[Rfam]
RNA sequence: AUCCCUUGAGCCCAGCGGUUCGAGGCUACAAUGAGAUGUGAUCCUGCCACAUCUCACUGUAGCCUCAAACCCUUGGGCUCAAGCGAU
Numbered sequence: 001a002u003c004c005c006u007u008g009a010g011c012c013c014a015g016c017g018g019u020u021c022g023a024g025g026c027u028a029c030a031a032u033g034a035g036a037u038g039u040g041a042u043c044c045u046g047c048c049a050c051a052u053c054u055c056a057c058u059g060u061a062g063c064c065u066c067a068a069a070c071c072c073u074u075g076g077g078c079u080c081a082a083g084c085g086a087u
Stems, first nucleotide, its partner, number of pairs: 003085001005083011018070003022066009032056009

The record is an 87-nucleotide RNA sequence from Chlorocebus sabaeus, which matches "mir-1304 microRNA precursor family" in Rfam. Taxonomically the source falls in Chlorocebus (Eukaryota, Metazoa, Gnathostomata, Euarchontoglires). Rfam 15.1 lists 15 matches to the family in 13 species.